[Rfam]
RNA sequence: UGAAGAAACAUCAUUGAGUGCAGCGUUGAUGAAAGUUCGUAUUCCUUCUGAAUCUUCAUUAGGGCAUCGAAACAUUUCAUCAACACUGCACCCAAUUAUGUUUCUA
Numbered sequence: 001u002g003a004a005g006a007a008a009c010a011u012c013a014u015u016g017a018g019u020g021c022a023g024c025g026u027u028g029a030u031g032a033a034a035g036u037u038c039g040u041a042u043u044c045c046u047u048c049u050g051a052a053u054c055u056u057c058a059u060u061a062g063g064g065c066a067u068c069g070a071a072a073c074a075u076u077u078c079a080u081c082a083a084c085a086c087u088g089c090a091c092c093c094a095a096u097u098a099u100g101u102u103u104c105u106a
Stems, first nucleotide, its partner, number of pairs: 006103006013096004018091006025084004030079003